Source information
Shown here is a 130-nucleotide RNA sequence from Mus spicilegus, a member of the family "Small Cajal body specific RNA 4". On this family, see Darzacq et al., EMBO J 2002: "Cajal body-specific small nuclear RNAs: a novel class of 2'-O-methylation and pseudouridylation guide RNAs". The family's RNA type in Rfam is small Cajal body RNA. The family has 24 seed sequences and 634 matches in Rfam 15.1.
RNA sequence: CCUGGAGGAUCAAGAAGGCUGAGUCUGAUGAAGCAAGACUUUGCUGAUCCGAUCCUCCUAGACAAAAAGGGGUGGAGAGAGCAGCCCUUAGUGAAGAAAACCACAGGGCUCACUGUACUACCCAACAUUU
Dot-bracket structure: .((((((((.......(((.((((((.........)))))).))).......)))))).)).......(((........((.((((((...((........)).))))))..))......))).......
scaRNAs are a specific class of small nuclear RNAs which localise to the Cajal bodies and guide the modification of RNA polymerase II transcribed spliceosomal RNAs U1, U2, U4, U5 and U12. ACA26 belongs to the H/ACA box class of guide RNAs as it has the predicted hairpin-hinge-hairpin-tail structure, conserved H/ACA-box motifs and is found associated with GAR1. Its Rfam clan is "SCARNA4 clan". Pairs were carried over by alignment from the consensus structure, which was predicted with RNAfold. Gene Ontology terms of the family: RNA processing, Cajal body and nucleolus. The source organism's lineage runs through Eukaryota, Vertebrata, Euarchontoglires, Muroidea and Mus.